[Rfam]
RNA: ASpks TB sRNA
Organism: Streptomyces avermitilis
RNA sequence: CUUCAACGAGCCCAGCCACAAAGGCCGGUCGCCGUCCCGUCCCUGGCCGUACGUGGCGAGCAGCGCCUGCGCCUC
Dot-bracket structure: ..............(((.....))).......(....((...((..(((....)))..))...))...)......